[Rfam]
RNA sequence: CUGGGGUGAUGCAAAUUAGCCAAAUCAUAUUUGAUGUGCUCCAUGAGGCAUUUAAUUUCUUCUAAGCUUUUAUUACUUCCUAUUAGAGAGGCACAUUGAAGGUCUCUGAUAUGGAUUUGAUGAGGCUAUAGAAAUUUUCCUCUUGUAGAAGCACAUCUCUCUGAUGAUAACAUAGAGAUUGGUUGCGUGCUGACCAGA
Dot-bracket structure: ((((.............................................................................................................................................................................................)))).
Numbered sequence: 001c002u003g004g005g006g007u008g009a010u011g012c013a014a015a016u017u018a019g020c021c022a023a024a025u026c027a028u029a030u031u032u033g034a035u036g037u038g039c040u041c042c043a044u045g046a047g048g049c050a051u052u053u054a055a056u057u058u059c060u061u062c063u064a065a066g067c068u069u070u071u072a073u074u075a076c077u078u079c080c081u082a083u084u085a086g087a088g089a090g091g092c093a094c095a096u097u098g099a100a101g102g103u104c105u106c107u108g109a110u111a112u113g114g115a116u117u118u119g120a121u122g123a124g125g126c127u128a129u130a131g132a133a134a135u136u137u138u139c140c141u142c143u144u145g146u147a148g149a150a151g152c153a154c155a156u157c158u159c160u161c162u163g164a165u166g167a168u169a170a171c172a173u174a175g176a177g178a179u180u181g182g183u184u185g186c187g188u189g190c191u192g193a194c195c196a197g198a
Stems, first nucleotide, its partner, number of pairs: 001197004
Rfam assigns this 198-nucleotide sequence from Rosa chinensis to the family "small nucleolar RNA snoR127". By type it is a C/D-box small nucleolar RNA. The literature on the family includes a 2009 paper in Nucleic Acids Res by Chen and Wu, "Mining small RNA sequencing data: a new approach to identify small nucleolar RNAs in Arabidopsis". Lineage of the source: Eukaryota > eudicotyledons > Rosales > Rosoideae > Rosa. Its family is annotated with RNA processing and nucleolus in the Gene Ontology. It scores 45 bits against the family's covariance model. Pairs were carried over by alignment from the consensus structure, which was predicted with RNAalifold.